[Rfam]
RNA sequence: CUGUACAACUGAAUAGAGUCGUAGAACGUAGGUGCCAUCGGCUUAAUUGCCUACCGAGGCUUGAAUGGAAUGGAAACAACGGGCGUGCUUUUCAAAGGGCAUAUCCAACCUUAUUGCCCACUGUUGUUUUCUCUGUUUAUGUGAGCCUCCAGGCACCUGGGGGCUUUUUGCAUGCAAUC
Numbered sequence: 001c002u003g004u005a006c007a008a009c010u011g012a013a014u015a016g017a018g019u020c021g022u023a024g025a026a027c028g029u030a031g032g033u034g035c036c037a038u039c040g041g042c043u044u045a046a047u048u049g050c051c052u053a054c055c056g057a058g059g060c061u062u063g064a065a066u067g068g069a070a071u072g073g074a075a076a077c078a079a080c081g082g083g084c085g086u087g088c089u090u091u092u093c094a095a096a097g098g099g100c101a102u103a104u105c106c107a108a109c110c111u112u113a114u115u116g117c118c119c120a121c122u123g124u125u126g127u128u129u130u131c132u133c134u135g136u137u138u139a140u141g142u143g144a145g146c147c148u149c150c151a152g153g154c155a156c157c158u159g160g161g162g163g164c165u166u167u168u169u170g171c172a173u174g175c176a177a178u179c
Stems, first nucleotide, its partner, number of pairs: 028054006034042003145164008

Notes: The record is a 179-nucleotide sequence, which matches "Ribosomal protein L10 leader" in Rfam. Rfam links the family to the GO term regulation of gene expression. It scores 46 bits against the family's covariance model. Pairs were carried over by alignment from the consensus structure, which was predicted with CMfinder. The family's RNA type in Rfam is cis-regulatory leader.